[Rfam]
Shown here is a 289-nucleotide sequence from Ophiophagus hannah, a member of the family "RNase MRP". The family's consensus secondary structure is taken from published work. The literature on the family includes a 1993 paper in FASEB J by Schmitt et al., "Secondary structure of RNase MRP RNA as predicted by phylogenetic comparison".
RNA sequence: GAGCGUUCUGAAGACCUGCUCUCUAGGCUACUUGCGGAGGACUUGUUCCUCUGGGCUUCUUCGCCGCCUAGGGGAAAGUCCCCGGACCCCGGGCAGAGAGUGCCGCGUGCUUUCACGCGCGCUAUACCCUCUCGCAAGCUCACGCUUCUUCCGCCAAGAAGCCCUCAGGGCCGAGCGGGUGAGUGCGGAGGGGCUCUCGUCAGCUCCAUAGUUACGCAGGUAGUGCGCAUGUGCUCCUUUCCCAAGGAGGCGGUCGCACCAACAAAACGGGGCUCAUUCUCAGGACGCU
Numbered sequence: 001g002a003g004c005g006u007u008c009u010g011a012a013g014a015c016c017u018g019c020u021c022u023c024u025a026g027g028c029u030a031c032u033u034g035c036g037g038a039g040g041a042c043u044u045g046u047u048c049c050u051c052u053g054g055g056c057u058u059c060u061u062c063g064c065c066g067c068c069u070a071g072g073g074g075a076a077a078g079u080c081c082c083c084g085g086a087c088c089c090c091g092g093g094c095a096g097a098g099a100g101u102g103c104c105g106c107g108u109g110c111u112u113u114c115a116c117g118c119g120c121g122c123u124a125u126a127c128c129c130u131c132u133c134g135c136a137a138g139c140u141c142a143c144g145c146u147u148c149u150u151c152c153g154c155c156a157a158g159a160a161g162c163c164c165u166c167a168g169g170g171c172c173g174a175g176c177g178g179g180u181g182a183g184u185g186c187g188g189a190g191g192g193g194c195u196c197u198c199g200u201c202a203g204c205u206c207c208a209u210a211g212u213u214a215c216g217c218a219g220g221u222a223g224u225g226c227g228c229a230u231g232u233g234c235u236c237c238u239u240u241c242c243c244a245a246g247g248a249g250g251c252g253g254u255c256g257c258a259c260c261a262a263c264a265a266a267a268c269g270g271g272g273c274u275c276a277u278u279c280u281c282a283g284g285a286c287g288c289u
Stems, first nucleotide, its partner, number of pairs: 002289010014221006022072007037051005077274002080272004092104004105122006125193001130190001132188004139183004151178004161171004223259005